This 152-nucleotide sequence from Vibrio rumoiensis belongs to the Rfam family "Gammaprotebacteria rimP leader".

RNA sequence: CUAUAGCUUGGUAAUAUCAGGGUCCAGCAAUAAAAAACCCCGAAUUCGGGGUUUUUUAUUAUCUGCGCACUUAGAUUGGCUCUUUUUUAGCAAAUUUAACGUGUUUUGUGGAUAAUGCAUGGUGUUUGAAUUGGGCUUUAUGCCCUUUUUUU
Numbered sequence: 001c002u003a004u005a006g007c008u009u010g011g012u013a014a015u016a017u018c019a020g021g022g023u024c025c026a027g028c029a030a031u032a033a034a035a036a037a038c039c040c041c042g043a044a045u046u047c048g049g050g051g052u053u054u055u056u057u058a059u060u061a062u063c064u065g066c067g068c069a070c071u072u073a074g075a076u077u078g079g080c081u082c083u084u085u086u087u088u089a090g091c092a093a094a095u096u097u098a099a100c101g102u103g104u105u106u107u108g109u110g111g112a113u114a115a116u117g118c119a120u121g122g123u124g125u126u127u128g129a130a131u132u133g134g135g136c137u138u139u140a141u142g143c144c145c146u147u148u149u150u151u152u
Base pairs, nucleotide, nucleotide: 034055035054036053037052038051039050040049041048042047133145134144135143136142

The family's consensus secondary structure is taken from published work. Rfam classes the family as a cis-regulatory leader.